Source information: Rfam assigns this 116-nucleotide RNA sequence from Nonomuraea solani to the family "Actinobacteria sRNA Ms_IGR-7". The base pairs follow the family's consensus structure. The literature on the family includes a 2013 paper in RNA by Li et al., "Identification of small RNAs in Mycobacterium smegmatis using heterologous Hfq". By type it is a small RNA. Taxonomically the source falls in Nonomuraea (Bacteria, Bacillati, Actinomycetota, Streptosporangiaceae).
RNA sequence: AUGAGGUGUCCUUUGCAGCGGGGCGAUGGAGCGUAGAGAACUCCCAUCCUCCCAGCUCGGAGGGCACCUCACUUCAUUUCGCGGCUCUCGCCUCGAGUUUCACGCCGUGGAUCCAG
Dot-bracket structure: .((((((((((((...(.(.(((.((((.((.........)).).)))..))).).)..)))))))))))).........................(.((((.....)))).)...
Numbered sequence: 001a002u003g004a005g006g007u008g009u010c011c012u013u014u015g016c017a018g019c020g021g022g023g024c025g026a027u028g029g030a031g032c033g034u035a036g037a038g039a040a041c042u043c044c045c046a047u048c049c050u051c052c053c054a055g056c057u058c059g060g061a062g063g064g065c066a067c068c069u070c071a072c073u074u075c076a077u078u079u080c081g082c083g084g085c086u087c088u089c090g091c092c093u094c095g096a097g098u099u100u101c102a103c104g105c106c107g108u109g110g111a112u113c114c115a116g
Stems, first nucleotide, its partner, number of pairs: 002071012017057001019055001021053003025048003028044001030042002097113001099111004